Rfam assigns this 230-nucleotide sequence from Staphylococcus phage qdsa001 to the family "Group I catalytic intron".

RNA sequence: AUGAAAUCGUAAAAUAAUUGCGACAUUAAGGAGUAAUCCUUAUUGCAAACCCAUCUAAUUCAGGGAACACCUAAACAUAUUAAGAUGUAGGCAAUCCUGAGCCAAGACCUUUUAUAGGUAAGGUGCAACGACUAGUCAGAAUGACGUACACUCAAGUGAGUGGAAAUGGUGGGAAUCCUAAAAUAAUAUUUAGGAUUGUGAUAUAGUCUAGACUAUAUGGAAACAUAUAG
Number, nucleotide and partner (000 for none) at each position: 001a000002u000003g000004a000005a000006a000007u023008c022009g021010u020011a019012a018013a000014a000015u000016a000017a000018u012019u011020g010021c009022g008023a007024c000025a000026u000027u000028a000029a040030g039031g038032a000033g000034u000035a000036a000037u000038c031039c030040u029041u000042a000043u000044u000045g000046c000047a000048a000049a000050c173051c172052c171053a170054u000055c168056u000057a000058a000059u000060u100061c099062a098063g097064g096065g095066a000067a000068c000069a000070c091071c090072u089073a088074a000075a000076c000077a000078u000079a000080u000081u000082a000083a000084g000085a000086u000087g000088u073089a072090g071091g070092c000093a000094a000095u065096c064097c063098u062099g061100a060101g124102c123103c000104a000105a000106g119107a000108c117109c000110u000111u000112u000113u000114a000115u000116a000117g108118g000119u106120a000121a000122g000123g102124u101125g000126c000127a000128a209129c000130g208131a207132c206133u205134a204135g000136u000137c000138a000139g000140a000141a000142u000143g000144a000145c000146g000147u000148a000149c000150a000151c000152u000153c000154a000155a000156g000157u000158g000159a000160g000161u000162g000163g000164a000165a000166a000167u000168g055169g000170u053171g052172g051173g050174a000175a000176u195177c194178c193179u192180a191181a190182a189183a000184u000185a000186a000187u000188a000189u182190u181191u180192a179193g178194g177195a176196u000197u000198g000199u000200g000201a000202u000203a000204u134205a133206g132207u131208c130209u128210a000211g000212a000213c000214u000215a228216u227217a226218u225219g224220g000221a000222a000223a000224c219225a218226u217227a216228u215229a000230g000

The match comes from Rfam's covariance-model search (104 bits). Lineage of the source: Viruses > Duplodnaviria > Heunggongvirae > Uroviricota > Silviavirus.